[Rfam]
RNA sequence: GUUCUCUGUUAGUUUUGCAUAGUUGCGCUCCAAGAAGAAAUAAGUUGUGCAAAUCUAUGCAAAACUAAUGGUGGCC
Numbered sequence: 001g002u003u004c005u006c007u008g009u010u011a012g013u014u015u016u017g018c019a020u021a022g023u024u025g026c027g028c029u030c031c032a033a034g035a036a037g038a039a040a041u042a043a044g045u046u047g048u049g050c051a052a053a054u055c056u057a058u059g060c061a062a063a064a065c066u067a068a069u070g071g072u073g074g075c076c
Stems, first nucleotide, its partner, number of pairs: 003074002006071014023052006031044001
About this RNA:
This 76-nucleotide RNA from Cyclopterus lumpus belongs to the Rfam family "mir-19 microRNA precursor family". Rfam links the family to the GO terms miRNA-mediated post-transcriptional gene silencing and RISC complex. The family's consensus secondary structure was predicted with RNAalifold. Lineage of the source: Eukaryota > Neopterygii > Acanthomorphata > Cyclopteridae > Cyclopterus. A reference for the family is Lagos-Quintana et al. (2001), "Identification of novel genes coding for small expressed RNAs", Science.